[Rfam]
RNA sequence: UGCCCCCGACCUGGAGAGAGAGGGGCCUGGCUGGUGGUGCCCAUCUCAUACCAGCUAGGGAUUUAGAAACCGGUUGCUUAUCCCAGCCUGGCUCCUGGUCUAUGCCCAUGCCUGGUUCAUAGGCAUAUCA
Numbered sequence: 001u002g003c004c005c006c007c008g009a010c011c012u013g014g015a016g017a018g019a020g021a022g023g024g025g026c027c028u029g030g031c032u033g034g035u036g037g038u039g040c041c042c043a044u045c046u047c048a049u050a051c052c053a054g055c056u057a058g059g060g061a062u063u064u065a066g067a068a069a070c071c072g073g074u075u076g077c078u079u080a081u082c083c084c085a086g087c088c089u090g091g092c093u094c095c096u097g098g099u100c101u102a103u104g105c106c107c108a109u110g111c112c113u114g115g116u117u118c119a120u121a122g123g124c125a126u127a128u129c130a
Stems, first nucleotide, its partner, number of pairs: 002062001004060003008056001011054004018047003022041002025038003075130002078127001096119003100115003104111002

Rfam assigns this 130-nucleotide sequence from Rhinopithecus roxellana to the family "Small nucleolar RNA SNORA48".
The snoRNA ACA 48 has been identified to guide pseudouridylation of the residue U3797 in the 28S rRNA subunit.
The family's RNA type in Rfam is H/ACA-box small nucleolar RNA.
Gene Ontology terms of the family: nucleolus and RNA processing.
The source organism's lineage runs through Eukaryota, Chordata, Theria, Primates and Rhinopithecus.
Pairs were carried over by alignment from the consensus structure, which was predicted with RNAalifold.
Its Rfam clan is "SNORA48 clan".
The literature on the family includes a 1997 paper in J Mol Biol by Ofengand and Bakin, "Mapping to nucleotide resolution of pseudouridine residues in large subunit ribosomal RNAs from representative eukaryotes, prokaryotes, archaebacteria, mitochondria and chloroplasts".